[Rfam]
This 95-nucleotide sequence from Vulpes vulpes belongs to the Rfam family "mir-8799 microRNA precursor family". Rfam links the family to the GO terms RISC complex and miRNA-mediated post-transcriptional gene silencing. Pairs were carried over by alignment from the consensus structure, which was predicted with RNAalifold.

RNA sequence: GGGGGGAGCAUAGGAUCCUGGGCUGUGUCCGCCAGCGCCCUGGGCUCCGGGUCUUGCGCCGCUGGAAUCGCGCUCCCCGGUCCGCGCAGCCCCCU
Numbered sequence: 001g002g003g004g005g006g007a008g009c010a011u012a013g014g015a016u017c018c019u020g021g022g023c024u025g026u027g028u029c030c031g032c033c034a035g036c037g038c039c040c041u042g043g044g045c046u047c048c049g050g051g052u053c054u055u056g057c058g059c060c061g062c063u064g065g066a067a068u069c070g071c072g073c074u075c076c077c078c079g080g081u082c083c084g085c086g087c088a089g090c091c092c093c094c095u
Stems, first nucleotide, its partner, number of pairs: 001095006011086001013083002017080002020076003024072004028066002032064001033061001035059004042054001044053001046051001